[Rfam]
RNA sequence: UUACAUGCAAUGAUUAUAGUACUUACGGAUCAGCCCUCUGGGGCCUGAAGACACUAAUACACCCAUAGAAUCUGAGCAUGU
Number, nucleotide and partner (000 for none) at each position: 001u000002u000003a081004c080005a000006u078007g077008c000009a000010a000011u000012g000013a000014u000015u000016a000017u000018a000019g000020u000021a000022c000023u000024u000025a000026c000027g000028g000029a000030u000031c000032a000033g000034c000035c000036c000037u000038c000039u000040g000041g000042g000043g000044c000045c000046u000047g000048a000049a000050g000051a000052c000053a000054c000055u000056a000057a000058u000059a000060c000061a000062c000063c000064c000065a000066u000067a000068g000069a000070a000071u000072c000073u000074g000075a000076g000077c007078a006079u000080g004081u003
RNA: Small nucleolar RNA snoR8a